[Rfam]
RNA sequence: GGGGUUGGAUGAGUGACUGGUGUCUUCCUGGGUCUUCAAAACCCUGAGGGACCUGCGUGCCAGGUCCGGUGGGUUCGAUUCCCACACGAUCCC
Numbered sequence: 001g002g003g004g005u006u007g008g009a010u011g012a013g014u015g016a017c018u019g020g021u022g023u024c025u026u027c028c029u030g031g032g033u034c035u036u037c038a039a040a041a042c043c044c045u046g047a048g049g050g051a052c053c054u055g056c057g058u059g060c061c062a063g064g065u066c067c068g069g070u071g072g073g074u075u076c077g078a079u080u081c082c083c084a085c086a087c088g089a090u091c092c093c
Stems, first nucleotide, its partner, number of pairs: 001093007008085001011027003015024003028046001030044004049067005070084004